[Rfam]
RNA sequence: UUUUAUCUCGAGUUUGCGUUGCAAACUCGAUUAUUUAUUGCGCUUUCUCAACUAACGUUUGCGAAAGCGCGGCUAAAAACUUUUUCGGAAGUUGCAACUUCCUGCAAAAGUUUUUAUAGGA
Numbered sequence: 001u002u003u004u005a006u007c008u009c010g011a012g013u014u015u016g017c018g019u020u021g022c023a024a025a026c027u028c029g030a031u032u033a034u035u036u037a038u039u040g041c042g043c044u045u046u047c048u049c050a051a052c053u054a055a056c057g058u059u060u061g062c063g064a065a066a067g068c069g070c071g072g073c074u075a076a077a078a079a080c081u082u083u084u085u086c087g088g089a090a091g092u093u094g095c096a097a098c099u100u101c102c103u104g105c106a107a108a109a110g111u112u113u114u115u116a117u118a119g120g121a
Stems, first nucleotide, its partner, number of pairs: 010028008040070008075115010087102006

This 121-nucleotide RNA sequence from Treponema maltophilum belongs to the Rfam family "TD-1 RNA". The match comes from Rfam's covariance-model search (71 bits). Rfam 15.1 lists 147 matches to the family in 9 species.